Nucleotides: 101
Stems, first nucleotide, its partner, number of pairs: 018087008029050005035045002061075004
Number, partner (000 for none) and nucleotide at each position: 001000u002000c003000a004000a005000c006000u007000a008000a009000a010000u011000g012000g013000u014000u015000u016000a017000a018087u019086u020085u021084u022083c023082g024081u025080a026000u027000a028000a029050c030049c031048u032047c033046g034000a035045g036044u037000a038000a039000u040000a041000a042000g043000g044036a045035c046033c047032g048031a049030g050029g051000g052000u053000c054000u055000c056000u057000a058000c059000a060000u061075g062074g063073a064072a065000c066000c067000g068000u069000a070000a071000a072064u073063u074062c075061c076000u077000a078000g079000c080025u081024a082023c083022g084021a085020a086019a087018a088000a089000u090000a091000u092000g093000c094000g095000u096000a097000c098000u099000u100000g101000c